[Rfam]
RNA sequence: AGCUUUGCACAGUGGCAGUAUUGUAGCCAAUGAAGUUUAUCCAAGGUGCGAUUAUUGCUAAUUGAAAAUUUUCCCAAUACCCUGCCGUGACGUCUUGCAAUAUAGUCAGCAUUGGCAAUUUUUGACAGUCUCUGAAGAAA
Numbered sequence: 001a002g003c004u005u006u007g008c009a010c011a012g013u014g015g016c017a018g019u020a021u022u023g024u025a026g027c028c029a030a031u032g033a034a035g036u037u038u039a040u041c042c043a044a045g046g047u048g049c050g051a052u053u054a055u056u057g058c059u060a061a062u063u064g065a066a067a068a069u070u071u072u073c074c075c076a077a078u079a080c081c082c083u084g085c086c087g088u089g090a091c092g093u094c095u096u097g098c099a100a101u102a103u104a105g106u107c108a109g110c111a112u113u114g115g116c117a118a119u120u121u122u123u124g125a126c127a128g129u130c131u132c133u134g135a136a137g138a139a140a
Base pairs, nucleotide, nucleotide: 020052021051022050023049024048026047027046028045035041084116085115086114087112088111089110092107094105095104129140131138132137